[Rfam]
RNA sequence: UCGGCUCCGGUUCACGCUGUCCGCGCCCGCGGCAGCGACCCGGCGGCC
Numbered sequence: 001u002c003g004g005c006u007c008c009g010g011u012u013c014a015c016g017c018u019g020u021c022c023g024c025g026c027c028c029g030c031g032g033c034a035g036c037g038a039c040c041c042g043g044c045g046g047c048c
Base pairs, nucleotide, nucleotide: 003048004047005046007043008042009041010040015037016036017035018034019033021032022031023030
The family of this 48-nucleotide RNA sequence from Parafrankia elaeagni is "L31-Actinobacteria ribosomal protein leader". A reference for the family is Eckert and Weinberg (2020), "Discovery of 20 novel ribosomal leader candidates in bacteria and archaea", BMC Microbiol. The base pairs follow the family's consensus structure, which is taken from published work. The family's RNA type in Rfam is cis-regulatory leader. Rfam's curators put it in the seed alignment.